c-di-GMP-I riboswitch aptamer: an 85-nucleotide RNA sequence from Bacillus sp. cl95.
[Rfam]
RNA sequence: AUUUGAUAAAGGCAAAAUCACUGAAAGGUGAUGACGCAAAGCUACGGGUCUAAGGUUGAAAAACUAUGAUCGCCGGGUUGCCAAU
Numbered sequence: 001a002u003u004u005g006a007u008a009a010a011g012g013c014a015a016a017a018u019c020a021c022u023g024a025a026a027g028g029u030g031a032u033g034a035c036g037c038a039a040a041g042c043u044a045c046g047g048g049u050c051u052a053a054g055g056u057u058g059a060a061a062a063a064c065u066a067u068g069a070u071c072g073c074c075g076g077g078u079u080g081c082c083a084a085u
Stems, first nucleotide, its partner, number of pairs: 012037002017032006040079004045075003048070003055064003